[Rfam]
RNA sequence: AUAUAAUACUCGUUGCGUUCAAAGACAGCAGGGGCCCAGCCGGGCGUAAUUCCUGCCGAGAGUGCUUUCAAAGGAUAACCACUUUGACGGUACUGUCCUCCUGUCUUUACGGCGGGAGGUUUUUUGUUUCGCGCA
Numbered sequence: 001a002u003a004u005a006a007u008a009c010u011c012g013u014u015g016c017g018u019u020c021a022a023a024g025a026c027a028g029c030a031g032g033g034g035c036c037c038a039g040c041c042g043g044g045c046g047u048a049a050u051u052c053c054u055g056c057c058g059a060g061a062g063u064g065c066u067u068u069c070a071a072a073g074g075a076u077a078a079c080c081a082c083u084u085u086g087a088c089g090g091u092a093c094u095g096u097c098c099u100c101c102u103g104u105c106u107u108u109a110c111g112g113c114g115g116g117a118g119g120u121u122u123u124u125u126g127u128u129u130c131g132c133g134c135a
Stems, first nucleotide, its partner, number of pairs: 028056006034045003097119009

Shown here is a 135-nucleotide sequence from Colidextribacter sp. OB.20, a member of the family "Ribosomal protein L10 leader". NCBI's taxonomy places the organism under Bacteria, Bacillati, Bacillota, Eubacteriales, Colidextribacter. The family's RNA type in Rfam is cis-regulatory leader. It scores 44 bits against the family's covariance model.